[Rfam]
RNA sequence: CCGACCACACUCGACAGGAUCUGUUGUUUAGUGAGUCUCUAGUCUUUUUUUUCGAAAAGAGACACCAUCUUCACGCUGGUGGAUGACACGUAGUGCGCCGUCCGUAAAGGGAUGUGUGCGUCACCAAGCGGCUCUAUGAGCUGCCCACGGUGCUACGCAGUAGAUGAUCUUGCCUUUUCGCUGUGCCCUUGCUGGCGCGGCGAUCUGGCGAGGACGGACGCACAGUCUGACAGCGC
Dot-bracket structure: ..(..(.((((....(.((....)).)..)))).)...).....(..(.((((.....)))).)..)......(((((..............(((((((((((...((((......(((((.................................)))))........))))......((((.(......................).)))))))))).))))).......))))).
Numbered sequence: 001c002c003g004a005c006c007a008c009a010c011u012c013g014a015c016a017g018g019a020u021c022u023g024u025u026g027u028u029u030a031g032u033g034a035g036u037c038u039c040u041a042g043u044c045u046u047u048u049u050u051u052u053c054g055a056a057a058a059g060a061g062a063c064a065c066c067a068u069c070u071u072c073a074c075g076c077u078g079g080u081g082g083a084u085g086a087c088a089c090g091u092a093g094u095g096c097g098c099c100g101u102c103c104g105u106a107a108a109g110g111g112a113u114g115u116g117u118g119c120g121u122c123a124c125c126a127a128g129c130g131g132c133u134c135u136a137u138g139a140g141c142u143g144c145c146c147a148c149g150g151u152g153c154u155a156c157g158c159a160g161u162a163g164a165u166g167a168u169c170u171u172g173c174c175u176u177u178u179c180g181c182u183g184u185g186c187c188c189u190u191g192c193u194g195g196c197g198c199g200g201c202g203a204u205c206u207g208g209c210g211a212g213g214a215c216g217g218a219c220g221c222a223c224a225g226u227c228u229g230a231c232a233g234c235g236c
Stems, first nucleotide, its partner, number of pairs: 003039001006035001008033004016027001018025002045067001048064001050062004074235005093223005098217006107171004117159005178211004183206001